[Rfam]
RNA sequence: AAUUAGUUAUAUGACUGACGGAAGUGGAGUAAACCACAUGAAGUAUAACAAUAAUAAGCCGACCGUCUGGGCAAAAGUC
Numbered sequence: 001a002a003u004u005a006g007u008u009a010u011a012u013g014a015c016u017g018a019c020g021g022a023a024g025u026g027g028a029g030u031a032a033a034c035c036a037c038a039u040g041a042a043g044u045a046u047a048a049c050a051a052u053a054a055u056a057a058g059c060c061g062a063c064c065g066u067c068u069g070g071g072c073a074a075a076a077g078u079c
Stems, first nucleotide, its partner, number of pairs: 004051001006049007015040001017067005024037004058072003
Shown here is a 79-nucleotide sequence from Clostridium sp. Maddingley MBC34-26, a member of the family "ZMP/ZTP riboswitch aptamer (pfl RNA motif)".
Pairs were carried over by alignment from the consensus structure, which is taken from published work.
It scores 58 bits against the family's covariance model.